[Rfam]
The record is a 92-nucleotide RNA sequence from Vineibacter terrae, which matches "Selenocysteine transfer RNA" in Rfam. The match comes from Rfam's covariance-model search (75 bits).
RNA sequence: GGAAGGGAAACGCUCCCGGUGGGGCGGCUGGACUUCAAAUCCAGUAAGGGUCGUUGGACGGUCCUUCGUGGGUUCGACUCCCACUCUCUUCC
Numbered sequence: 001g002g003a004a005g006g007g008a009a010a011c012g013c014u015c016c017c018g019g020u021g022g023g024g025c026g027g028c029u030g031g032a033c034u035u036c037a038a039a040u041c042c043a044g045u046a047a048g049g050g051u052c053g054u055u056g057g058a059c060g061g062u063c064c065u066u067c068g069u070g071g072g073u074u075c076g077a078c079u080c081c082c083a084c085u086c087u088c089u090u091c092c
Stems, first nucleotide, its partner, number of pairs: 001092008011026006027045006047065005069083004